Rfam assigns this 73-nucleotide RNA sequence from Rattus norvegicus to the family "mir-676 microRNA precursor family". The family's consensus secondary structure was predicted with RNAalifold. Gene Ontology terms of the family: RISC complex and miRNA-mediated post-transcriptional gene silencing. The family has 12 seed sequences and 104 matches in Rfam 15.1.
[Rfam]
Nucleotides: 073
Base pairs, nucleotide, nucleotide: 002072003071004070005069006068010064011063012062015059016058017057019055020054022052023051024050025049026048029046030045031044
Number, partner (000 for none) and nucleotide at each position: 001000a002072a003071u004070g005069c006068a007000u008000g009000a010064c011063u012062c013000u014000g015059c016058a017057a018000c019055c020054u021000u022052a023051g024050g025049a026048c027000u028000u029046g030045c031044a032000g033000a034000a035000u036000u037000a038000a039000c040000a041000g042000a043000a044031u045030g046029c047000c048026g049025u050024c051023c052022u053000g054020a055019g056000c057017u058016u059015g060000u061000c062012g063011a064010g065000c066000u067000a068006u069005g070004c071003g072002u073000u